[Rfam]
A member of the RNA family "Streptomyces RNA 3202" from Streptomyces galilaeus, 90 nucleotides long. About the family: Identified by deep sequencing of transcriptome at the end of exponential growth phase. Appears smaller on northern blot than sequencing transcript. This indicates processing step. Streptomyces specific. Pairs were carried over by alignment from the consensus structure. The literature on the family includes a 2011 paper in RNA Biol by Vockenhuber et al., "Deep sequencing-based identification of small non-coding RNAs in Streptomyces coelicolor". It is annotated as a small RNA.
RNA sequence: CCACGUCCCGACGCACACCCCCCCCGGCGCCGGGACCUCCCGAGUCGGGCUUCGGCGCCGCCCCCCCUGGCGCCGGAGUCCGGCUCUUUU
Numbered sequence: 001c002c003a004c005g006u007c008c009c010g011a012c013g014c015a016c017a018c019c020c021c022c023c024c025c026g027g028c029g030c031c032g033g034g035a036c037c038u039c040c041c042g043a044g045u046c047g048g049g050c051u052u053c054g055g056c057g058c059c060g061c062c063c064c065c066c067c068u069g070g071c072g073c074c075g076g077a078g079u080c081c082g083g084c085u086c087u088u089u090u
Stems, first nucleotide, its partner, number of pairs: 005036006012029003042086010053075007